Rfam assigns this 126-nucleotide RNA sequence from Leersia perrieri to the family "MIR1878 microRNA precursor family". Rfam links the family to the GO terms RISC complex and miRNA-mediated post-transcriptional gene silencing. The base pairs follow the family's consensus structure, which was predicted with RNAalifold. The match comes from Rfam's covariance-model search (91 bits).
RNA sequence: ACCUUUGCAAACUUAAUCUGGACACUACAAAAGAAUUGUGCAUGUGAAAGUAUGCUAAAAGAAUUGUGCAUGUGAAAAUAUGCACACUAUAAAUUUGUAGUGUUCAGAUUGAGUUUAUAACGGUUG
Numbered sequence: 001a002c003c004u005u006u007g008c009a010a011a012c013u014u015a016a017u018c019u020g021g022a023c024a025c026u027a028c029a030a031a032a033g034a035a036u037u038g039u040g041c042a043u044g045u046g047a048a049a050g051u052a053u054g055c056u057a058a059a060a061g062a063a064u065u066g067u068g069c070a071u072g073u074g075a076a077a078a079u080a081u082g083c084a085c086a087c088u089a090u091a092a093a094u095u096u097g098u099a100g101u102g103u104u105c106a107g108a109u110u111g112a113g114u115u116u117a118u119a120a121c122g123g124u125u126g
Base pairs, nucleotide, nucleotide: 001124002123003122009116010115011114012113013112014111015110016109017108018107019106020105021104022103023102024101025100026099027098028097029096030095031094037086038085041082042081043080044079045078